[Rfam]
RNA sequence: AAUGGCUUCAAUUCCGUAGUGCAUUGCAGUGUAUUUUUUCACCUACUGCAAGCAAUGUGGAAGUGAAGCUGAUUG
Numbered sequence: 001a002a003u004g005g006c007u008u009c010a011a012u013u014c015c016g017u018a019g020u021g022c023a024u025u026g027c028a029g030u031g032u033a034u035u036u037u038u039u040c041a042c043c044u045a046c047u048g049c050a051a052g053c054a055a056u057g058u059g060g061a062a063g064u065g066a067a068g069c070u071g072a073u074u075g
Stems, first nucleotide, its partner, number of pairs: 006068005013061005020054003024051005
Record summary:
This 75-nucleotide sequence from Culex quinquefasciatus belongs to the Rfam family "mir-932 microRNA precursor family". For this family Rfam cites "MicroRNAs of Bombyx mori identified by Solexa sequencing" (Liu et al., BMC Genomics, 2010). The family has 14 seed sequences and 136 matches in Rfam 15.1.